[Rfam]
RNA sequence: AAGAAGCAGAGUCUCCUGAGUCCGCAGCACUCGAUGUUCCUCCGCAGCAGGAGCAGGCUCAGUUUCUU
Numbered sequence: 001a002a003g004a005a006g007c008a009g010a011g012u013c014u015c016c017u018g019a020g021u022c023c024g025c026a027g028c029a030c031u032c033g034a035u036g037u038u039c040c041u042c043c044g045c046a047g048c049a050g051g052a053g054c055a056g057g058c059u060c061a062g063u064u065u066c067u068u
Stems, first nucleotide, its partner, number of pairs: 001068007009060005017033005037053005

This 68-nucleotide RNA from Holothuria leucospilota belongs to the Rfam family "bZIP non canonical Hac1/Xbp1 intron". It is annotated as a small RNA. bZIP intron RNA is a non-canonical intron that was first reported in HAC1 gene in yeast and XBP1 gene in Metazoa. Taxonomically the source falls in Holothuria (Eukaryota, Metazoa, Echinozoa, Aspidochirotida). It scores 46 bits against the family's covariance model. For this family Rfam cites "Conserved RNA structures in the non-canonical Hac1/Xbp1 intron" (Hooks and Griffiths-Jones, RNA Biol, 2011).